[Rfam]
RNA: MIR8565 microRNA precursor family
RNA sequence: CCCACACGCAUGUGUGUAGGACCCCAAGGAUCAUCAUUCAAUUUGACACAGAUCUCUAGAAAAGUUAUCACAUGGGUGUGGGACUUGACUUUUUUAGAGAUCUGUACUACAUUGAAUGAUGAUCCUUUGGGGUCCUACACACAUGGGUGUGAG
Numbered sequence: 001c002c003c004a005c006a007c008g009c010a011u012g013u014g015u016g017u018a019g020g021a022c023c024c025c026a027a028g029g030a031u032c033a034u035c036a037u038u039c040a041a042u043u044u045g046a047c048a049c050a051g052a053u054c055u056c057u058a059g060a061a062a063a064g065u066u067a068u069c070a071c072a073u074g075g076g077u078g079u080g081g082g083a084c085u086u087g088a089c090u091u092u093u094u095u096a097g098a099g100a101u102c103u104g105u106a107c108u109a110c111a112u113u114g115a116a117u118g119a120u121g122a123u124c125c126u127u128u129g130g131g132g133u134c135c136u137a138c139a140c141a142c143a144u145g146g147g148u149g150u151g152a153g
Stems, first nucleotide, its partner, number of pairs: 003151005009145005015139014029124003033120010044109002048105020068081005